Overview
The family of this 162-nucleotide RNA from Prolemur simus is "U1 spliceosomal RNA". Rfam classes the family as a spliceosomal small nuclear RNA. A search with the family's covariance model found it, with a score of 112 bits. The base pairs follow the family's consensus structure, which is taken from published work. Its family is annotated with pre-mRNA 5'-splice site binding, mRNA 5'-splice site recognition and U1 snRNP in the Gene Ontology.
RNA sequence: ACACUUACCUGACAGGGGAGAUACCAUGAUCACAAAGGUGAUUUUCCCAGGUCACAGCUUAUUCAUUGUAUUCCAGGUGUGCUGACCUCUGUGAUUUUCCCAAAUGUGGGAAACUCGACUGCAUAAUUUGUGGUACUGGGAGACUGCAUUUGCACCCUCCUC
Numbered sequence: 001a002c003a004c005u006u007a008c009c010u011g012a013c014a015g016g017g018g019a020g021a022u023a024c025c026a027u028g029a030u031c032a033c034a035a036a037g038g039u040g041a042u043u044u045u046c047c048c049a050g051g052u053c054a055c056a057g058c059u060u061a062u063u064c065a066u067u068g069u070a071u072u073c074c075a076g077g078u079g080u081g082c083u084g085a086c087c088u089c090u091g092u093g094a095u096u097u098u099c100c101c102a103a104a105u106g107u108g109g110g111a112a113a114c115u116c117g118a119c120u121g122c123a124u125a126a127u128u129u130g131u132g133g134u135a136c137u138g139g140g141a142g143a144c145u146g147c148a149u150u151u152g153c154a155c156c157c158u159c160c161u162c
Stems, first nucleotide, its partner, number of pairs: 013121003016048006023042001025040003049090003056083003060079004092117003095113003099109002138161005145154003
Annotation:
U1 is a small nuclear RNA (snRNA) component of the spliceosome (involved in pre-mRNA splicing). Its 5' end forms complementary base pairs with the 5' splice junction, thus defining the 5' donor site of an intron. There are significant differences in sequence and secondary structure between metazoan and yeast U1 snRNAs, the latter being much longer (568 nucleotides as compared to 164 nucleotides in human). Nevertheless, secondary structure predictions suggest that all U1 snRNAs share a 'common core' consisting of helices I, II, the proximal region of III, and IV. This family does not contain the larger yeast sequences. NCBI's taxonomy places the organism under Eukaryota, Opisthokonta, Gnathostomata, Teleostomi, Prolemur.